Rfam assigns this 77-nucleotide RNA sequence from Dipodomys ordii to the family "mir-3473 microRNA precursor family".

[Rfam]
RNA sequence: ACCACUGAGCCACCUUCCCAGCCCCCACAUUUUUUUUUUUAAUAAUUUCUCUUGGGCUAGGAAGGUGGCUCAGUGGU
Numbered sequence: 001a002c003c004a005c006u007g008a009g010c011c012a013c014c015u016u017c018c019c020a021g022c023c024c025c026c027a028c029a030u031u032u033u034u035u036u037u038u039u040u041a042a043u044a045a046u047u048u049c050u051c052u053u054g055g056g057c058u059a060g061g062a063a064g065g066u067g068g069c070u071c072a073g074u075g076g077u
Stems, first nucleotide, its partner, number of pairs: 002076017020058005
Rfam links the family to the GO terms miRNA-mediated post-transcriptional gene silencing, RISC complex and cellular response to mechanical stimulus.